[Rfam]
The record is a 111-nucleotide RNA from Zhengella mangrovi, which matches "EcpR1" in Rfam. The literature on the family includes a 2012 paper in RNA Biol by Wilms et al., "Deep sequencing uncovers numerous small RNAs on all four replicons of the plant pathogen Agrobacterium tumefaciens". Rfam links the family to the GO terms negative regulation of cell cycle, regulation of translation in response to stress and mRNA binding. Pairs were carried over by alignment from the consensus structure, which was predicted with WAR.

Nucleotides: 111
Stems, first nucleotide, its partner, number of pairs: 003047008014037006049106011
Number, partner (000 for none) and nucleotide at each position: 001000u002000u003047a004046c005045c006044c007043c008042a009041u010040g011000a012000a013000g014037c015036u016035c017034a018033g019032g020000u021000c022000c023000g024000c025000c026000g027000c028000a029000u030000c031000u032019c033018c034017u035016g036015g037014g038000u039000c040010c041009g042008u043007g044006g045005g046004g047003u048000g049106g050105g051104c052103c053102g054101a055100c056099c057098g058097g059096g060000c061000u062000g063000g064000c065000g066000a067000u068000c069000a070000g071000u072000g073000g074000c075000c076000u077000c078000c079000u080000c081000g082000u083000a084000c085000c086000g087000c088000u089000g090000c091000c092000a093000g094000a095000u096059u097058c098057c099056g100055g101054u102053c103052g104051g105050c106049c107000c108000c109000c110000a111000u